[Rfam]
The family of this 102-nucleotide RNA sequence from Sutcliffiella cohnii is "SAM riboswitch aptamer (S box leader)". About the family: The SAM riboswitch is found upstream of a number of genes which code for proteins involved in methionine or cysteine biosynthesis in Gram-positive bacteria. The SAM riboswitch acts at the level of transcription termination control. The predicted structure consists of a complex stem-loop region followed by a single stem loop terminator region. An alternative and mutually exclusive form involves bases in the 3' segment of helix 1 with those in the 5' region of helix 5 to form a structure termed the anti-terminator form. The family's consensus secondary structure is taken from published work. Taxonomically the source falls in Sutcliffiella (Bacteria, Bacillati, Caryophanales, Bacillaceae). It scores 86 bits against the family's covariance model.
Nucleotides: 102
Stems, first nucleotide, its partner, number of pairs: 002101007013042005021031003025078004043070004048066002050062001052061002074094001079091005
Number, partner (000 for none) and nucleotide at each position: 001000c002101u003100c004099u005098u006097a007096u008095c009000u010000a011000g012000a013042g014041a015040g016039g017038u018000g019000g020000a021031g022030g023029g024000a025078c026077u027076g028075g029023c030022c031021c032000u033000a034000u035000g036000a037000u038017a039016c040015c041014u042013c043070g044069g045068c046067a047000g048066c049065g050062g051000a052061c053060u054000u055000u056000a057000a058000a059000u060053a061052g062050u063000a064000c065049u066048g067046u068045g069044c070043c071000a072000a073000u074094u075028c076027c077026a078025g079091u080090a081089g082088c083087g084000u085000a086000a087083u088082g089081c090080u091079a092000g093000a094074a095008g096007a097006u098005a099004a100003g101002a102000a